[Rfam]
RNA: GcvB RNA
RNA sequence: ACUUUCUGAGCCGGAACGAAAAGAUUUCUGGAAACGUGCGAGAGAUCGCAGACUUUUAGAGAGCUUUUGGCUUAUGGUCGUGACGUUGUGUUUGCAUUUUGAUCUGACGAUUGCAGAUCAAACUUUUAAUUCCUGUAGAUUUACCCUGUCUGUCCAUAGUGAUUUUAAAUAGCACCGCAAAUUGCGGUGAUUUUUUUU
Numbered sequence: 001a002c003u004u005u006c007u008g009a010g011c012c013g014g015a016a017c018g019a020a021a022a023g024a025u026u027u028c029u030g031g032a033a034a035c036g037u038g039c040g041a042g043a044g045a046u047c048g049c050a051g052a053c054u055u056u057u058a059g060a061g062a063g064c065u066u067u068u069g070g071c072u073u074a075u076g077g078u079c080g081u082g083a084c085g086u087u088g089u090g091u092u093u094g095c096a097u098u099u100u101g102a103u104c105u106g107a108c109g110a111u112u113g114c115a116g117a118u119c120a121a122a123c124u125u126u127u128a129a130u131u132c133c134u135g136u137a138g139a140u141u142u143a144c145c146c147u148g149u150c151u152g153u154c155c156a157u158a159g160u161g162a163u164u165u166u167a168a169a170u171a172g173c174a175c176c177g178c179a180a181a182u183u184g185c186g187g188u189g190a191u192u193u194u195u196u197u198u
Base pairs, nucleotide, nucleotide: 009072010071011070012069015068016067021066022065023064025062026061027060028059029058030057031056032055033054099121100120101119102118103117104116105115106114171191173189174188175187176186177185178184